[Rfam]
RNA sequence: UCCAGCAGUAGUCAGCCAUCUCAGACACGUUCCUGUGAUGGUGUUACACUGCUGGGAGAGGAAUGUGUGGUCUUCACCUGGUUGCUGCAUCACUGUUCUGGUGACCUGUGACUGGUGUAAGACGGAACUGUGCUUCCUUGAGAGUGUGCUAAGCAUUCGUUUUGACUGCUUAGUUCUAGUGUGGGAGCAGACAAA
Dot-bracket structure: (((((((((.((..(((((((..(.......)..).))))))...)))))))))))........((.(.((((.....(((((((.(...((((.....))))..).))))))).....)))).).))..(((((((........(.(.((((((...........)))))).).)......)))))))......
RNA: Small nucleolar RNA SNORA74
Organism: Mesocricetus auratus